[Rfam]
RNA: mir-8517 microRNA precursor family
Organism: Plutella xylostella
RNA sequence: UAAGACAUUUUAGCUUUUGAACUGUUUUGUCCCUCUCUGUCAAUAACAAAUUGUUCUUUGACCGAGAGGGACAAAUCAGUUCAAUAGCUAAAACGUCAACUAAC
Numbered sequence: 001u002a003a004g005a006c007a008u009u010u011u012a013g014c015u016u017u018u019g020a021a022c023u024g025u026u027u028u029g030u031c032c033c034u035c036u037c038u039g040u041c042a043a044u045a046a047c048a049a050a051u052u053g054u055u056c057u058u059u060g061a062c063c064g065a066g067a068g069g070g071a072c073a074a075a076u077c078a079g080u081u082c083a084a085u086a087g088c089u090a091a092a093a094c095g096u097c098a099a100c101u102a103a104c
Base pairs, nucleotide, nucleotide: 001099008093009092010091011090012089013088014087015086017084018083019082020081021080022079023078024077026065027064029062030061031060045055046054047053048052